[Rfam]
The family of this 139-nucleotide RNA from Brachypteracias leptosomus is "Small nucleolar RNA SNORA46". The family's consensus secondary structure was predicted with RNAfold. The match comes from Rfam's covariance-model search (97 bits). Lineage of the source: Eukaryota > Bilateria > Teleostomi > Archelosauria > Brachypteracias.
RNA sequence: AGCACUAUGUUUAAACCUGUUGGUGGAAUUCCCUGACCACCGUGGGUUACGCUGUAGUGCAAAAGUAUCUCCUGGCUCUUUAGAGCAUGGCUGACCUUGCUCUGUUCAGCCCCUGCUCCUCUGAAGCUAAGGAACAAGA
Numbered sequence: 001a002g003c004a005c006u007a008u009g010u011u012u013a014a015a016c017c018u019g020u021u022g023g024u025g026g027a028a029u030u031c032c033c034u035g036a037c038c039a040c041c042g043u044g045g046g047u048u049a050c051g052c053u054g055u056a057g058u059g060c061a062a063a064a065g066u067a068u069c070u071c072c073u074g075g076c077u078c079u080u081u082a083g084a085g086c087a088u089g090g091c092u093g094a095c096c097u098u099g100c101u102c103u104g105u106u107c108a109g110c111c112c113c114u115g116c117u118c119c120u121c122u123g124a125a126g127c128u129a130a131g132g133a134a135c136a137a138g139a
Stems, first nucleotide, its partner, number of pairs: 002060008014048004021042006070133004074128004079123001082120001085116003089111003093107002